[Rfam]
RNA sequence: UCACCUCCCGUGGGAGAGACCGGCGACGUGCCCCUGGGCGGGCGCGGGCGGCCGGCGCCGAAGGAGCAACCGCCCUCGGAAACUCUCAGGCAAAAGGACCGCGGGAGGCAG
Numbered sequence: 001u002c003a004c005c006u007c008c009c010g011u012g013g014g015a016g017a018g019a020c021c022g023g024c025g026a027c028g029u030g031c032c033c034c035u036g037g038g039c040g041g042g043c044g045c046g047g048g049c050g051g052c053c054g055g056c057g058c059c060g061a062a063g064g065a066g067c068a069a070c071c072g073c074c075c076u077c078g079g080a081a082a083c084u085c086u087c088a089g090g091c092a093a094a095a096g097g098a099c100c101g102c103g104g105g106a107g108g109c110a111g
Base pairs, nucleotide, nucleotide: 006106007105008104009103010102011101012100013099020055021054022053023052057091058090059089060087061086064085065084066083070078
The family of this 111-nucleotide RNA from Roseospirillum parvum is "Glycine riboswitch aptamer". Rfam 15.1 lists 9,425 matches to the family in 5,228 species. Lineage of the source: Bacteria > Pseudomonadati > Alphaproteobacteria > Rhodospirillales > Roseospirillum. Pairs were carried over by alignment from the consensus structure. Rfam's curators write: This family represents the bacterial glycine riboswitch. Glycine riboswitches usually consist of two metabolite-binding aptamers domains with similar structures in tandem.